FMN riboswitch aptamer (RFN element): a 173-nucleotide RNA from Paenibacillus antarcticus. The match comes from Rfam's covariance-model search (101 bits).
[Rfam]
RNA sequence: UAUCUACUUCGGGGUUGGGUGAAAUUCCCUACCGGCGGUGAUGUCUAAUCGUUUAUAGCAUACUUAUGCACACGAUGAGGCUUAGUCCGUGACCCGGACGCUUAUGUAUAGCGUACGGUGGACCUGGUGCAAUUCCGGGACCGACAGUAAAGUCUGGAUGGGAGAAGGAGAGC
Numbered sequence: 001u002a003u004c005u006a007c008u009u010c011g012g013g014g015u016u017g018g019g020u021g022a023a024a025u026u027c028c029c030u031a032c033c034g035g036c037g038g039u040g041a042u043g044u045c046u047a048a049u050c051g052u053u054u055a056u057a058g059c060a061u062a063c064u065u066a067u068g069c070a071c072a073c074g075a076u077g078a079g080g081c082u083u084a085g086u087c088c089g090u091g092a093c094c095c096g097g098a099c100g101c102u103u104a105u106g107u108a109u110a111g112c113g114u115a116c117g118g119u120g121g122a123c124c125u126g127g128u129g130c131a132a133u134u135c136c137g138g139g140a141c142c143g144a145c146a147g148u149a150a151a152g153u154c155u156g157g158a159u160g161g162g163a164g165a166a167g168g169a170g171a172g173c
Base pairs, nucleotide, nucleotide: 003171004170005169007167008166009165010164017029018028019027031153032152033143034142035090036089037088038087094118095117123139124138125137126136127135145156146155147154